[Rfam]
The family of this 378-nucleotide RNA from Agromyces protaetiae is "Bacterial RNase P class A". Pairs were carried over by alignment from the consensus structure, which is taken from published work. A search with the family's covariance model found it, with a score of 284 bits.
RNA sequence: CGGGUCGGCAAGACGGUCGCGUCGCGGUGCUUCGGCGCCGCGCCGAGGAACGUCCGGGCUCCGCAGGGCAGGACGGUGGGUAACGCCCACCCGGGGUGACCCGCGAGACAGUGCCACAGAGAACAGACCGCCUCCCGCGCGAGCGGGCGGUAAGGGUGAAACGGUGGGGUAAGAGCCCACCAGCGGCCGCGGCGACGCGGUCGGCUCGGUAAACCUCGUCCGGAGCAAGACCAGACAGGGAACGAUGGGGCUGCCCGUCCCGUUCCCGGGUAGGUCGCUGGAGGGCUGCGGCAACGCAGCUCCGAGAGAGAUGGCCGUCCAGCCGGUGUCGCGCAAGCGCCCGGUCAACAGAACCCGGCGUAUCAGCCGACCCGCUCG
Numbered sequence: 001c002g003g004g005u006c007g008g009c010a011a012g013a014c015g016g017u018c019g020c021g022u023c024g025c026g027g028u029g030c031u032u033c034g035g036c037g038c039c040g041c042g043c044c045g046a047g048g049a050a051c052g053u054c055c056g057g058g059c060u061c062c063g064c065a066g067g068g069c070a071g072g073a074c075g076g077u078g079g080g081u082a083a084c085g086c087c088c089a090c091c092c093g094g095g096g097u098g099a100c101c102c103g104c105g106a107g108a109c110a111g112u113g114c115c116a117c118a119g120a121g122a123a124c125a126g127a128c129c130g131c132c133u134c135c136c137g138c139g140c141g142a143g144c145g146g147g148c149g150g151u152a153a154g155g156g157u158g159a160a161a162c163g164g165u166g167g168g169g170u171a172a173g174a175g176c177c178c179a180c181c182a183g184c185g186g187c188c189g190c191g192g193c194g195a196c197g198c199g200g201u202c203g204g205c206u207c208g209g210u211a212a213a214c215c216u217c218g219u220c221c222g223g224a225g226c227a228a229g230a231c232c233a234g235a236c237a238g239g240g241a242a243c244g245a246u247g248g249g250g251c252u253g254c255c256c257g258u259c260c261c262g263u264u265c266c267c268g269g270g271u272a273g274g275u276c277g278c279u280g281g282a283g284g285g286c287u288g289c290g291g292c293a294a295c296g297c298a299g300c301u302c303c304g305a306g307a308g309a310g311a312u313g314g315c316c317g318u319c320c321a322g323c324c325g326g327u328g329u330c331g332c333g334c335a336a337g338c339g340c341c342c343g344g345u346c347a348a349c350a351g352a353a354c355c356c357g358g359c360g361u362a363u364c365a366g367c368c369g370a371c372c373c374g375c376u377c378g
Stems, first nucleotide, its partner, number of pairs: 001374009011363001012319007020045002023042006050361003054358005059225004066256004071221005076090005091105001092103004106216002111214002113210003128155002130151003134147005163181006183205001184203008229276004238267006247261005283302008